[Rfam]
RNA sequence: CGGGGUGGACACCGUCCCUGUCCUCCAGGAGCUCACGUAUGCCUGCCUGUGAGCGCCUCGACGACAGAGCCAGAGUCCACCCCUGCACUGCC
Dot-bracket structure: ....((((.(.(...(.(((.(.((.(((.(((((((((....)))..)))))).))).)).).))).)...).).))))............
mir-339 microRNA precursor family: a 92-nucleotide RNA from Rattus norvegicus. The literature on the family includes a 2010 paper in Mol Biol Rep by Cho et al., "Cloning and characterization of microRNAs from porcine skeletal muscle and adipose tissue". Rfam links the family to the GO terms RISC complex and miRNA-mediated post-transcriptional gene silencing. Rfam 15.1 lists 128 matches to the family in 127 species.